RNA sequence: CAGCUCAAGGAGCGCUGCAGCGCGGUACCGUCCCGCGUCAGGCUUGAGAUGGACCCCAACCGCGCUCACCUUCG
Numbered sequence: 001c002a003g004c005u006c007a008a009g010g011a012g013c014g015c016u017g018c019a020g021c022g023c024g025g026u027a028c029c030g031u032c033c034c035g036c037g038u039c040a041g042g043c044u045u046g047a048g049a050u051g052g053a054c055c056c057c058a059a060c061c062g063c064g065c066u067c068a069c070c071u072u073c074g
Stems, first nucleotide, its partner, number of pairs: 002050001004048005021037005
SAH (S-adenosyl-L-homocysteine) riboswitch aptamer: a 74-nucleotide sequence from Ramlibacter cellulosilyticus. Rfam links the family to the GO terms S-adenosylhomocysteine metabolic process and regulation of gene expression. The organism belongs to Ramlibacter, within Bacteria. The base pairs follow the family's consensus structure, which is taken from published work. A search with the family's covariance model found it, with a score of 56 bits. The literature on the family includes a 2008 paper in Mol Cell by Wang et al., "Riboswitches that sense S-adenosylhomocysteine and activate genes involved in coenzyme recycling". The family has 52 seed sequences and 1,354 matches in Rfam 15.1.